[Rfam]
RNA sequence: GGGGGGAUUUAGCGCCCCCCAACCCCU
Numbered sequence: 001g002g003g004g005g006g007a008u009u010u011a012g013c014g015c016c017c018c019c020c021a022a023c024c025c026c027u
Base pairs, nucleotide, nucleotide: 001020002019003018004017005016006015012027014025
RNA: ribosomal frameshift site
Organism: Diceros bicornis